Annotation: The family of this 92-nucleotide sequence from Nicotiana attenuata is "Small nucleolar RNA SNORD25". Rfam classes the family as a C/D-box small nucleolar RNA.
RNA sequence: AUUAACGGUGAUGAGCUAUUUAUACAGACACAGACCUGUAAUGAUUUGCGAAAAUGAUCGCAUUUUAUGAACAUCUAAGGGACUGAGUUUGU
Numbered sequence: 001a002u003u004a005a006c007g008g009u010g011a012u013g014a015g016c017u018a019u020u021u022a023u024a025c026a027g028a029c030a031c032a033g034a035c036c037u038g039u040a041a042u043g044a045u046u047u048g049c050g051a052a053a054a055u056g057a058u059c060g061c062a063u064u065u066u067a068u069g070a071a072c073a074u075c076u077a078a079g080g081g082a083c084u085g086a087g088u089u090u091g092u
Stems, first nucleotide, its partner, number of pairs: 002091001004089003
The match comes from Rfam's covariance-model search (50 bits). A reference for the family is Tycowski et al. (1996), "A mammalian gene with introns instead of exons generating stable RNA products", Nature.